Rfam assigns this 101-nucleotide sequence from Vibrio furnissii to the family "Vibrio RNA AS9". It is annotated as an antisense RNA. The family's consensus secondary structure was predicted with RNAfold.
RNA sequence: AUGGCAACGCGCUUUGGUCAUGGUGAGACAAAUCAAACCACGACCAUGAGUCGCCAUAAAGUUAAUCGCUGCCGGCGUAAUAUGCUCGGCCGCCAUGAUCA
Numbered sequence: 001a002u003g004g005c006a007a008c009g010c011g012c013u014u015u016g017g018u019c020a021u022g023g024u025g026a027g028a029c030a031a032a033u034c035a036a037a038c039c040a041c042g043a044c045c046a047u048g049a050g051u052c053g054c055c056a057u058a059a060a061g062u063u064a065a066u067c068g069c070u071g072c073c074g075g076c077g078u079a080a081u082a083u084g085c086u087c088g089g090c091c092g093c094c095a096u097g098a099u100c101a
Stems, first nucleotide, its partner, number of pairs: 003055003007051002010025004015020001032047002038042001063101001065099003068093002071090004075085003
The source organism's lineage runs through Bacteria, Pseudomonadota, Vibrionaceae, Vibrio and Vibrio furnissii. About the family: Identified by direct cloning an parallel sequencing experiments with 5S/tRNA depletion. Confirmed by Northern blot.